Notes
Rfam assigns this 204-nucleotide RNA sequence from Oxobacter pfennigii to the family "raiA RNA". The source organism's lineage runs through Bacteria, Bacillati, Bacillota, Eubacteriales and Oxobacter. The match comes from Rfam's covariance-model search (186 bits).
[Rfam]
Nucleotides: 204
Stems, first nucleotide, its partner, number of pairs: 001204009012195003015189005028175003031041001033091007050084002058076001060074001062072003082182001103168005108119004123161004132153002138147002
Number, partner (000 for none) and nucleotide at each position: 001204u002203u003202a004201u005200a006199u007198u008197a009196g010000g011000u012195c013194u014193g015189u016188g017187g018186u019185u020000g021000a022000a023000a024000g025000u026000c027000g028175a029174u030173g031041c032000u033091a034090g035089u036088c037087g038086c039085a040000a041031g042000c043000g044000a045000a046000a047000c048000g049000a050084c051083c052000c053000a054000c055000g056000u057000a058076a059000g060074u061000u062072g063071a064070a065000a066000a067000a068000a069000a070064u071063u072062u073000c074060a075000a076058u077000g078000a079000g080000c081000a082182u083051g084050g085039u086038g087037c088036g089035g090034u091033u092000u093000a094000g095000g096000g097000g098000u099000a100000a101000g102000a103168c104167c105166u106165g107164c108119c109118g110117u111116c112000u113000u114000a115000g116111g117110g118109c119108g120000a121000g122000a123161g124160a125159g126158g127000g128000a129000u130000u131000a132153g133152u134000g135000a136000g137000a138147g139146g140000a141000a142000u143000g144000a145000a146139c147138c148000u149000u150000a151000a152133g153132c154000a155000a156000a157000a158126c159125u160124u161123c162000c163000a164107g165106c166105a167104g168103g169000c170000g171000g172000g173030u174029g175028u176000g177000g178000g179000g180000g181000c182082a183000a184000a185019g186018a187017c188016c189015a190000g191000g192000u193014c194013a195012g196009c197008u198007a199006a200005u201004a202003u203002a204001a